The record is a 79-nucleotide RNA sequence from Thauera sp. 27, which matches "DUF3085 RNA" in Rfam. The family's RNA type in Rfam is cis-regulatory element. The source organism's lineage runs through Bacteria, Betaproteobacteria, Rhodocyclales, Zoogloeaceae and Thauera.
RNA sequence: CGGUAGCUGGUGCCACCGGGCUUAAACGAGCCGAACCCAGCCUUCAACGUCCGCACAGGACAAUCGCAACCCACUCGGG
Numbered sequence: 001c002g003g004u005a006g007c008u009g010g011u012g013c014c015a016c017c018g019g020g021c022u023u024a025a026a027c028g029a030g031c032c033g034a035a036c037c038c039a040g041c042c043u044u045c046a047a048c049g050u051c052c053g054c055a056c057a058g059g060a061c062a063a064u065c066g067c068a069a070c071c072c073a074c075u076c077g078g079g
Stems, first nucleotide, its partner, number of pairs: 001018004006041005019032004049061004